[Rfam]
RNA sequence: UUCUUAUCAAGAGUGGUGGAGGGAUCUGGCCCUGUGAAACCCAGCAACCAGCAGUUUUGCUGCCCGGUGCUAAAUCCAGCAGGAUUAUAACCUGAGAGAUAAGUA
Numbered sequence: 001u002u003c004u005u006a007u008c009a010a011g012a013g014u015g016g017u018g019g020a021g022g023g024a025u026c027u028g029g030c031c032c033u034g035u036g037a038a039a040c041c042c043a044g045c046a047a048c049c050a051g052c053a054g055u056u057u058u059g060c061u062g063c064c065c066g067g068u069g070c071u072a073a074a075u076c077c078a079g080c081a082g083g084a085u086u087a088u089a090a091c092c093u094g095a096g097a098g099a100u101a102a103g104u105a
Base pairs, nucleotide, nucleotide: 001105003103004102005101006100007099008098013042015041016040017039021032022031023030026079027078028077029076043071044070045069046068048067049066051063052062053061075097080094081093082092083091085089
RNA: SAM riboswitch aptamer (S box leader)
Organism: Halanaerobium salsuginis